[Rfam]
RNA sequence: CUUGAUCGACCCCAGCCACAGCGGCCGGCCCUCCGGCCGAUCCUGCCCAUACGUCGCCAGCAACGCCUGCGCCUC
Numbered sequence: 001c002u003u004g005a006u007c008g009a010c011c012c013c014a015g016c017c018a019c020a021g022c023g024g025c026c027g028g029c030c031c032u033c034c035g036g037c038c039g040a041u042c043c044u045g046c047c048c049a050u051a052c053g054u055c056g057c058c059a060g061c062a063a064c065g066c067c068u069g070c071g072c073c074u075c
Base pairs, nucleotide, nucleotide: 015025016024017023031071033069038065039064043060044059045058047056049054
The record is a 75-nucleotide RNA sequence from Streptomyces sp. SAJ15, which matches "ASpks TB sRNA" in Rfam. The match comes from Rfam's covariance-model search (88 bits). The family's consensus secondary structure is taken from published work. Lineage of the source: Bacteria > Bacillati > Actinomycetota > Streptomycetaceae > Streptomyces.